A member of the RNA family "Small nucleolar RNA SNORD77" from Gossypium aridum, 64 nucleotides long. Rfam's curators write: U77 belongs to the C/D family of snoRNAs. It is predicted to guide 2'O-ribose methylation of large 28S rRNA subunit at position A1521. The C/D snoRNAs U44, U47, U74, U75, U76, U78, U79, U80 and U81 share the same host gene as U77 (non-coding). It is annotated as a C/D-box small nucleolar RNA. The family is grouped with related families in Rfam's "SNORD77 clan". NCBI's taxonomy places the organism under Eukaryota, Streptophytina, Euphyllophyta, Malvales, Gossypium. The literature on the family includes a 2004 paper in Curr Biol by Tycowski et al., "Guide RNAs with 5' caps and novel box C/D snoRNA-like domains for modification of snRNAs in metazoa". The match comes from Rfam's covariance-model search (37 bits).
RNA sequence: ACACUAUGAAGGUCACAAGUGGAUUAAUUCAUGAAAGGAUUCAAAAUUAAUUUGACUUGUGUCC
Numbered sequence: 001a002c003a004c005u006a007u008g009a010a011g012g013u014c015a016c017a018a019g020u021g022g023a024u025u026a027a028u029u030c031a032u033g034a035a036a037g038g039a040u041u042c043a044a045a046a047u048u049a050a051u052u053u054g055a056c057u058u059g060u061g062u063c064c
Stems, first nucleotide, its partner, number of pairs: 001062004006032005013022003038048004